The family of this 172-nucleotide sequence from Kitasatospora cheerisanensis is "c-di-AMP riboswitch aptamer (ydaO/yuaA leader)".
RNA sequence: UCAUGCGAAACGCACCGCGGCAGGGGCGGGGGAACCAGGUAAGUCGCCCUGGGCAGGUCCACGGACCGGUCCGGGGCUUGGGGUGAAGCCGUGCGCGCCGAGAGGCGUGCGCGGCCGGGCAACUCCGGCCCGAAUCCGACAGCUCACCUCGCAGGCGUGGGAGAGGAACGCA
Numbered sequence: 001u002c003a004u005g006c007g008a009a010a011c012g013c014a015c016c017g018c019g020g021c022a023g024g025g026g027c028g029g030g031g032g033a034a035c036c037a038g039g040u041a042a043g044u045c046g047c048c049c050u051g052g053g054c055a056g057g058u059c060c061a062c063g064g065a066c067c068g069g070u071c072c073g074g075g076g077c078u079u080g081g082g083g084u085g086a087a088g089c090c091g092u093g094c095g096c097g098c099c100g101a102g103a104g105g106c107g108u109g110c111g112c113g114g115c116c117g118g119g120c121a122a123c124u125c126c127g128g129c130c131c132g133a134a135u136c137c138g139a140c141a142g143c144u145c146a147c148c149u150c151g152c153a154g155g156c157g158u159g160g161g162a163g164a165g166g167a168a169c170g171c172a
Base pairs, nucleotide, nucleotide: 004157005156006155011025013023026152027151028150029149030148031147036080037079038078039077040076081137082136083135089114090113091112092111093110094109095108096107097106098105099104117131118130119129120128

Taxonomically the source falls in Kitasatospora cheerisanensis (Bacteria, Actinomycetota, Kitasatosporales, Streptomycetaceae).